This 102-nucleotide RNA sequence from Rhododendron williamsianum belongs to the Rfam family "Small nucleolar RNA snoR100". The base pairs follow the family's consensus structure, which was predicted with WAR. A search with the family's covariance model found it, with a score of 61 bits. For this family Rfam cites "Experimental RNomics: identification of 140 candidates for small non-messenger RNAs in the plant Arabidopsis thaliana" (Marker et al., Curr Biol, 2002).
RNA sequence: GAAUGAAGGAAGCAUAGUAAUGUACACAAAAAUUAAUUUGGGUCUCUAGACCUGCCCCUUUGAUAUCUUUGGGCUUUGAGGGUAUGGUUCCACAGCAAAACA
Numbered sequence: 001g002a003a004u005g006a007a008g009g010a011a012g013c014a015u016a017g018u019a020a021u022g023u024a025c026a027c028a029a030a031a032a033u034u035a036a037u038u039u040g041g042g043u044c045u046c047u048a049g050a051c052c053u054g055c056c057c058c059u060u061u062g063a064u065a066u067c068u069u070u071g072g073g074c075u076u077u078g079a080g081g082g083u084a085u086g087g088u089u090c091c092a093c094a095g096c097a098a099a100a101c102a
Base pairs, nucleotide, nucleotide: 012025014023015022040085042083043082044081052078054074055073056072